[Rfam]
RNA sequence: GGUGGACGGUGUGCGUAGUGUCCGUCUACGUUUAGUGCCGUCUCCGGUCUGUGUCUUACAGGCUGUGGGACGGUUCUCAUGCCACACUCACAGCCACAGAGCCACUGGAGAUCAUAGUACUGGCCCAGUGACGUCUAAACGACAGUCCACCACUGACCAGCCUCCAUAGUCUCCUACAAAA
Dot-bracket structure: ............(.(..............((.(.(.(((((.(((((..(((.....)))..))).)).)))))..).).))......).)...............(((((........((((.(.((((.((((.....))).).....))))).)))).........))))).......
Numbered sequence: 001g002g003u004g005g006a007c008g009g010u011g012u013g014c015g016u017a018g019u020g021u022c023c024g025u026c027u028a029c030g031u032u033u034a035g036u037g038c039c040g041u042c043u044c045c046g047g048u049c050u051g052u053g054u055c056u057u058a059c060a061g062g063c064u065g066u067g068g069g070a071c072g073g074u075u076c077u078c079a080u081g082c083c084a085c086a087c088u089c090a091c092a093g094c095c096a097c098a099g100a101g102c103c104a105c106u107g108g109a110g111a112u113c114a115u116a117g118u119a120c121u122g123g124c125c126c127a128g129u130g131a132c133g134u135c136u137a138a139a140c141g142a143c144a145g146u147c148c149a150c151c152a153c154u155g156a157c158c159a160g161c162c163u164c165c166a167u168a169g170u171c172u173c174c175u176a177c178a179a180a181a
Stems, first nucleotide, its partner, number of pairs: 013091001015089001030082002033079001035077001037074005043068002045065003050060003107174005120160004125155001127154004132145001133143003
This 181-nucleotide RNA from Anabarilius grahami belongs to the Rfam family "Small nucleolar RNA SNORA23". The members of this family belong to the H/ACA class of snoRNAs which are thought to guide the sites of modification of uridines to pseudouridines. This family includes human snoRNA ACA23 (SNORA23) and mouse snoMBI-1. ACA23 is predicted to guide the pseudouridylation of residue U3737 and U4331 of 28S rRNA.